Rfam assigns this 76-nucleotide RNA sequence from Branchiostoma lanceolatum to the family "mir-4872 microRNA precursor family". The family's consensus secondary structure was predicted with RNAalifold. The organism belongs to Branchiostoma, within Eukaryota.
RNA sequence: UCCCAUGCGGUGCCGGGGCAAUAAAAGCUCUGAGUUUUGUUAGCAUCAGAGUUUUUUUGUCCUGGCUUCAUAUGGA
Numbered sequence: 001u002c003c004c005a006u007g008c009g010g011u012g013c014c015g016g017g018g019c020a021a022u023a024a025a026a027g028c029u030c031u032g033a034g035u036u037u038u039g040u041u042a043g044c045a046u047c048a049g050a051g052u053u054u055u056u057u058u059g060u061c062c063u064g065g066c067u068u069c070a071u072a073u074g075g076a
Base pairs, nucleotide, nucleotide: 001076002075004074005073006072007071009069010068012066013065014064015063016062017061019059020058021057024055025054026053027052028051029050030049031048032047033046034044035043